[Rfam]
RNA sequence: ACGGGCACGGACACCCGUGGUUCCACGCAGAAACGAUGUUUUAAAGCAAAGUAAUUUGUAAAGCUUUAAAACUCAUAGGUUACUUUUUGACACGGAUGUCAAAAAGUAACCCGCG
Numbered sequence: 001a002c003g004g005g006c007a008c009g010g011a012c013a014c015c016c017g018u019g020g021u022u023c024c025a026c027g028c029a030g031a032a033a034c035g036a037u038g039u040u041u042u043a044a045a046g047c048a049a050a051g052u053a054a055u056u057u058g059u060a061a062a063g064c065u066u067u068a069a070a071a072c073u074c075a076u077a078g079g080u081u082a083c084u085u086u087u088u089g090a091c092a093c094g095g096a097u098g099u100c101a102a103a104a105a106g107u108a109a110c111c112c113g114c115g
Stems, first nucleotide, its partner, number of pairs: 001018005035074002038072010078111014

Description: The record is a 115-nucleotide RNA from Treponema phagedenis, which matches "TD-2 RNA" in Rfam. The source organism's lineage runs through Bacteria, Spirochaetia, Treponematales, Treponemataceae and Treponema. It scores 52 bits against the family's covariance model. For this family Rfam cites "Identification of 22 candidate structured RNAs in bacteria using the CMfinder comparative genomics pipeline" (Weinberg et al., Nucleic Acids Res, 2007).